[Rfam]
RNA sequence: GCAUGGCCGAAUUCUGUUCCAGCUGGUCUGUGGUGGAUACAGUCAGACACCAUGCAAAAGUCUCGUCUCAUUUCUGCUAAAUGACAGGAUGAGUGCUGUGCCCUGAGCCUCAUCCAGCUGUACAGGAAUGAGUACAAUG
Numbered sequence: 001g002c003a004u005g006g007c008c009g010a011a012u013u014c015u016g017u018u019c020c021a022g023c024u025g026g027u028c029u030g031u032g033g034u035g036g037a038u039a040c041a042g043u044c045a046g047a048c049a050c051c052a053u054g055c056a057a058a059a060g061u062c063u064c065g066u067c068u069c070a071u072u073u074c075u076g077c078u079a080a081a082u083g084a085c086a087g088g089a090u091g092a093g094u095g096c097u098g099u100g101c102c103c104u105g106a107g108c109c110u111c112a113u114c115c116a117g118c119u120g121u122a123c124a125g126g127a128a129u130g131a132g133u134a135c136a137a138u139g
Stems, first nucleotide, its partner, number of pairs: 001055006014042004067132003071128006084121003087115007095108002
A member of the RNA family "Small nucleolar RNA SNORA15" from Lates calcarifer, 139 nucleotides long. ACA15 is a member of the H/ACA class of snoRNA that guide the sites of modification of uridines to pseudouridines. Rfam 15.1 lists 974 matches to the family in 624 species. A search with the family's covariance model found it, with a score of 55 bits. Lineage of the source: Eukaryota > Eumetazoa > Vertebrata > Actinopteri > Lates. For this family Rfam cites "RNomics: an experimental approach that identifies 201 candidates for novel, small, non-messenger RNAs in mouse" (Huttenhofer et al., EMBO J, 2001).